The record is an 83-nucleotide RNA sequence from Lacrimispora algidixylanolytica, which matches "ZMP/ZTP riboswitch aptamer (pfl RNA motif)" in Rfam.
[Rfam]
RNA sequence: CAGAGUACGUGCGACUGACGGAUAAGUGGAAUUAACCACGGGGAGCACGAUACAUUUUAAAGCCGACCGUCUGGGCACCGCUA
Numbered sequence: 001c002a003g004a005g006u007a008c009g010u011g012c013g014a015c016u017g018a019c020g021g022a023u024a025a026g027u028g029g030a031a032u033u034a035a036c037c038a039c040g041g042g043g044a045g046c047a048c049g050a051u052a053c054a055u056u057u058u059a060a061a062g063c064c065g066a067c068c069g070u071c072u073g074g075g076c077a078c079c080g081c082u083a
Stems, first nucleotide, its partner, number of pairs: 008049005015042002017071005026039004062076003